[Rfam]
Nucleotides: 221
Base pairs, nucleotide, nucleotide: 007102008101015097016096017095018094025085026084027083028082029081030080039072040071049070050069051068052067053066105131106130107129108128109127110126111125133144134143135142159178160177161176162175163174164173165172183218184217185216186215194214195213196212197211198210
Number, partner (000 for none) and nucleotide at each position: 001000c002000g003000a004000a005000c006000a007102u008101u009000a010000a011000u012000g013000a014000a015097c016096a017095g018094g019000a020000c021000a022000g023000u024000a025085g026084u027083u028082c029081u030080u031000g032000u033000c034000g035000g036000a037000c038000a039072g040071u041000c042000g043000c044000a045000g046000c047000g048000a049070g050069c051068c052067g053066g054000a055000a056000g057000u058000g059000g060000u061000g062000g063000g064000a065000a066053c067052c068051g069050g070049u071040a072039c073000g074000a075000a076000u077000g078000u079000c080030a081029a082028g083027a084026a085025c086000g087000a088000a089000g090000c091000g092000g093000g094018u095017c096016u097015g098000g099000g100000a101008a102007a103000u104000g105131g106130u107129c108128u109127u110126c111125c112000g113000a114000a115000a116000c117000a118000a119000g120000a121000a122000g123000u124000a125111g126110g127109g128108a129107g130106a131105u132000c133144c134143g135142g136000c137000a138000u139000a140000a141000g142135c143134c144133g145000u146000u147000a148000u149000c150000g151000u152000a153000g154000g155000a156000g157000u158000g159178g160177u161176u162175a163174a164173a165172u166000c167000a168000g169000c170000a171000g172165a173164u174163u175162u176161a177160a178159c179000a180000c181000u182000u183218a184217g185216a186215g187000u188000g189000g190000u191000a192000c193000c194214g195213c196212g197211g198210g199000a200000a201000u202000g203000a204000a205000c206000a207000g208000c209000u210198c211197u212196c213195g214194u215186c216185u217184c218183u219000u220000a221000u